[Rfam]
RNA sequence: GGUAGGCAGGCGCCGGACAACCCCGAGUUGCCUUUGGGCGGCAGCAUCCUUUGCGAUGUGGAUCAGGGGCCGGGGGCCUACCCGCCU
Numbered sequence: 001g002g003u004a005g006g007c008a009g010g011c012g013c014c015g016g017a018c019a020a021c022c023c024c025g026a027g028u029u030g031c032c033u034u035u036g037g038g039c040g041g042c043a044g045c046a047u048c049c050u051u052u053g054c055g056a057u058g059u060g061g062a063u064c065a066g067g068g069g070c071c072g073g074g075g076g077c078c079u080a081c082c083c084g085c086c087u
Stems, first nucleotide, its partner, number of pairs: 001082007011074001013073004021069004027042006045058004
RNA: DUF3800-VII RNA
Organism: Methylocystis echinoides